The record is a 168-nucleotide RNA sequence from Melioribacter roseus, which matches "Molybdenum/Tungsten riboswitch aptamer (Moco RNA motif)" in Rfam.
The family's consensus secondary structure is taken from published work.
[Rfam]
RNA sequence: UUGAAUUCUUUUCUCCGAGUUGUAUCCUCUAAGGAGUUCUACUCUAUGAGAUGCAACCGAUAGGGUAGGUCUGGAAACGGACUUGUUCCGCUUAGAGCGGGAUUAACCUGCCGGUUCGCCGAUUAAGUUUGGCAGAACGCUUUGCAAAGGAGAGUUAAAAUAGAUUAG
Numbered sequence: 001u002u003g004a005a006u007u008c009u010u011u012u013c014u015c016c017g018a019g020u021u022g023u024a025u026c027c028u029c030u031a032a033g034g035a036g037u038u039c040u041a042c043u044c045u046a047u048g049a050g051a052u053g054c055a056a057c058c059g060a061u062a063g064g065g066u067a068g069g070u071c072u073g074g075a076a077a078c079g080g081a082c083u084u085g086u087u088c089c090g091c092u093u094a095g096a097g098c099g100g101g102a103u104u105a106a107c108c109u110g111c112c113g114g115u116u117c118g119c120c121g122a123u124u125a126a127g128u129u130u131g132g133c134a135g136a137a138c139g140c141u142u143u144g145c146a147a148a149g150g151a152g153a154g155u156u157a158a159a160a161u162a163g164a165u166u167a168g
Stems, first nucleotide, its partner, number of pairs: 004161001006159001011154006019057007027050003033045004063089002065086009090145002